[Rfam]
c-di-AMP riboswitch aptamer (ydaO/yuaA leader): a 192-nucleotide RNA from Streptomyces sp. WMMB 714. Its family is annotated with regulation of gene expression and cyclic-di-AMP binding in the Gene Ontology.
RNA sequence: GGGCCGUCCCCGCCGAGUCCGGCCGGCUUCACGCCGGAGCCGGGGACCCACCGCGUAGGCGCAGGCCCGCGUACGCACCAGGGGUGAAUCGGGACGUACGCGCCGCCGGAAAGCGGGCGCACGGCCCGUAGGGCAGCCUUCCGAACGCCCGAACCCGUCAGCUAACCCGGUAGGCGGCACACGGAAGGAGUU
Numbered sequence: 001g002g003g004c005c006g007u008c009c010c011c012g013c014c015g016a017g018u019c020c021g022g023c024c025g026g027c028u029u030c031a032c033g034c035c036g037g038a039g040c041c042g043g044g045g046a047c048c049c050a051c052c053g054c055g056u057a058g059g060c061g062c063a064g065g066c067c068c069g070c071g072u073a074c075g076c077a078c079c080a081g082g083g084g085u086g087a088a089u090c091g092g093g094a095c096g097u098a099c100g101c102g103c104c105g106c107c108g109g110a111a112a113g114c115g116g117g118c119g120c121a122c123g124g125c126c127c128g129u130a131g132g133g134c135a136g137c138c139u140u141c142c143g144a145a146c147g148c149c150c151g152a153a154c155c156c157g158u159c160a161g162c163u164a165a166c167c168c169g170g171u172a173g174g175c176g177g178c179a180c181a182c183g184g185a186a187g188g189a190g191u192u
Stems, first nucleotide, its partner, number of pairs: 011176004018038006039171006049081001082156003090128004131150004

A reference for the family is Barrick et al. (2004), "New RNA motifs suggest an expanded scope for riboswitches in bacterial genetic control", Proc Natl Acad Sci U S A. It scores 52 bits against the family's covariance model.